[Rfam]
This 31-nucleotide RNA sequence from Onychostoma macrolepis belongs to the Rfam family "Iron response element II". The literature on the family includes a 1996 paper in Proc Natl Acad Sci U S A by Gray et al., "Translational regulation of mammalian and Drosophila citric acid cycle enzymes via iron-responsive elements". By type it is a cis-regulatory element. The organism belongs to Onychostoma, within Eukaryota. Rfam links the family to the GO term response to iron ion. Pairs were carried over by alignment from the consensus structure, which is taken from published work.
RNA sequence: AAAUUAUCGGGAACAGUGUUUCCCAUAGUUU
Number, nucleotide and partner (000 for none) at each position: 001a031002a030003a029004u028005u027006a026007u025008c000009g024010g023011g022012a021013a020014c018015a000016g000017u000018g014019u000020u013021u012022c011023c010024c009025a007026u006027a005028g004029u003030u002031u001